[Rfam]
RNA sequence: GAGUGUAUAUUUGUGGCGAGUCGAAAGGCGGAGCGAAAGCGAUAGUACGCAGCAUGCUUGUCAUGUCAGGUACAUGGUAUGAAAAUGCCAGAGCCACAUUUAUACGACCCGAAGCCAUUGUGAUCUAUGCGUGCCCAAGGUGAAGCUAGGUUAACGCCUGGUGGAGGCCUGCAACUUCUCAUAGCAUGUCUUGUUAGGUGAGGUACGCAUAGCGGCGAUAUACCACUCGAACAUGGCAAUAGCGGGUC
Numbered sequence: 001g002a003g004u005g006u007a008u009a010u011u012u013g014u015g016g017c018g019a020g021u022c023g024a025a026a027g028g029c030g031g032a033g034c035g036a037a038a039g040c041g042a043u044a045g046u047a048c049g050c051a052g053c054a055u056g057c058u059u060g061u062c063a064u065g066u067c068a069g070g071u072a073c074a075u076g077g078u079a080u081g082a083a084a085a086u087g088c089c090a091g092a093g094c095c096a097c098a099u100u101u102a103u104a105c106g107a108c109c110c111g112a113a114g115c116c117a118u119u120g121u122g123a124u125c126u127a128u129g130c131g132u133g134c135c136c137a138a139g140g141u142g143a144a145g146c147u148a149g150g151u152u153a154a155c156g157c158c159u160g161g162u163g164g165a166g167g168c169c170u171g172c173a174a175c176u177u178c179u180c181a182u183a184g185c186a187u188g189u190c191u192u193g194u195u196a197g198g199u200g201a202g203g204u205a206c207g208c209a210u211a212g213c214g215g216c217g218a219u220a221u222a223c224c225a226c227u228c229g230a231a232c233a234u235g236g237c238a239a240u241a242g243c244g245g246g247u248c
Stems, first nucleotide, its partner, number of pairs: 005105005012098006020029003033040002045073004052066004076089004108246002111243001115236003119233003125212011136200001138170004145162007175197002180193002183191002214224002